[Rfam]
Shown here is a 93-nucleotide RNA sequence from Heterotrigona itama, a member of the family "mir-275 microRNA precursor family". On this family, see Yu et al., PLoS One 2008: "The silkworm (Bombyx mori) microRNAs and their expressions in multiple developmental stages". Pairs were carried over by alignment from the consensus structure, which was predicted with RNAalifold.
RNA sequence: GUGACGUUCGCAACGCGUGUUACUCAGGUACUUCGGGCUGUGCCAAUCUCGAGUCAGUCAGGUACCUGAAGUAGCGCGCGCUGCGGCGAGACC
Numbered sequence: 001g002u003g004a005c006g007u008u009c010g011c012a013a014c015g016c017g018u019g020u021u022a023c024u025c026a027g028g029u030a031c032u033u034c035g036g037g038c039u040g041u042g043c044c045a046a047u048c049u050c051g052a053g054u055c056a057g058u059c060a061g062g063u064a065c066c067u068g069a070a071g072u073a074g075c076g077c078g079c080g081c082u083g084c085g086g087c088g089a090g091a092c093c
Base pairs, nucleotide, nucleotide: 009085010084011083012082014080016078017077018076019075020074021073022072030063031062033061036059037058038057039056